[Rfam]
RNA sequence: AUGUUGGAGUAAUCGCUGCACGAUUUGUCGUGUAGAGGAAAGUCCAUGCUCACACAAGCUGUGAUGCUUGUAGUGUUCGUGCUUGACGAAAUCAUAAGUCAAGGUAGCCUAACUGGCUAACGGCAGGGAAGAUACCUAAGUCUUCGGAUAUGGUAUUGCAACCUUGAAAGUGCCACAGUGACGUAGUCAGAAUGGAAACAUUCUGAGUGGAACGAGGUAAACCCCACGAGUGAGCAACCCAAAUAAUGGUAGGGGCAUCCUUUAGUAGGGAACUGAACCGAAAGAGGGACAAGCUAAUGCUUGUAGAUAGAUGAUUACUGCUUAAGUACGAGGCUGACCACCGUUUGGAGUACAACAGUACAGAACAUGGCUUACAAAA
Numbered sequence: 001a002u003g004u005u006g007g008a009g010u011a012a013u014c015g016c017u018g019c020a021c022g023a024u025u026u027g028u029c030g031u032g033u034a035g036a037g038g039a040a041a042g043u044c045c046a047u048g049c050u051c052a053c054a055c056a057a058g059c060u061g062u063g064a065u066g067c068u069u070g071u072a073g074u075g076u077u078c079g080u081g082c083u084u085g086a087c088g089a090a091a092u093c094a095u096a097a098g099u100c101a102a103g104g105u106a107g108c109c110u111a112a113c114u115g116g117c118u119a120a121c122g123g124c125a126g127g128g129a130a131g132a133u134a135c136c137u138a139a140g141u142c143u144u145c146g147g148a149u150a151u152g153g154u155a156u157u158g159c160a161a162c163c164u165u166g167a168a169a170g171u172g173c174c175a176c177a178g179u180g181a182c183g184u185a186g187u188c189a190g191a192a193u194g195g196a197a198a199c200a201u202u203c204u205g206a207g208u209g210g211a212a213c214g215a216g217g218u219a220a221a222c223c224c225c226a227c228g229a230g231u232g233a234g235c236a237a238c239c240c241a242a243a244u245a246a247u248g249g250u251a252g253g254g255g256c257a258u259c260c261u262u263u264a265g266u267a268g269g270g271a272a273c274u275g276a277a278c279c280g281a282a283a284g285a286g287g288g289a290c291a292a293g294c295u296a297a298u299g300c301u302u303g304u305a306g307a308u309a310g311a312u313g314a315u316u317a318c319u320g321c322u323u324a325a326g327u328a329c330g331a332g333g334c335u336g337a338c339c340a341c342c343g344u345u346u347g348g349a350g351u352a353c354a355a356c357a358g359u360a361c362a363g364a365a366c367a368u369g370g371c372u373u374a375c376a377a378a379a
Stems, first nucleotide, its partner, number of pairs: 004379002007375001008319007016035006040373003044370005049234005054071006077229005082103006104121001105119005122224002125164003133155004140149003170222002172218003187206008238254003258288006289304006321358002326353004
The family of this 379-nucleotide RNA from Radiobacillus deserti is "Bacterial RNase P class B". It is annotated as a ribozyme. The match comes from Rfam's covariance-model search (332 bits).